[Rfam]
RNA: UnaL2 LINE 3' element
RNA sequence: GACAGUCCAUCCUGUAAGUCGCUUUGGAUAAAAGCGUCUACUAAAUGGCAUAUU
Numbered sequence: 001g002a003c004a005g006u007c008c009a010u011c012c013u014g015u016a017a018g019u020c021g022c023u024u025u026g027g028a029u030a031a032a033a034g035c036g037u038c039u040a041c042u043a044a045a046u047g048g049c050a051u052a053u054u
Stems, first nucleotide, its partner, number of pairs: 013043001014041003020036006